[Rfam]
RNA sequence: UUGCCCAUCGGGGCGGUGGAUGCCUGCUUUUAAUUUUU
Numbered sequence: 001u002u003g004c005c006c007a008u009c010g011g012g013g014c015g016g017u018g019g020a021u022g023c024c025u026g027c028u029u030u031u032a033a034u035u036u037u038u
Base pairs, nucleotide, nucleotide: 003014004013005012006011017026018025019024
The record is a 38-nucleotide RNA sequence from Phyllostomus discolor, which matches "XIST RNA A repeat" in Rfam.
The organism belongs to Phyllostomus, within Eukaryota.
It is annotated as a small RNA.
A search with the family's covariance model found it, with a score of 47 bits.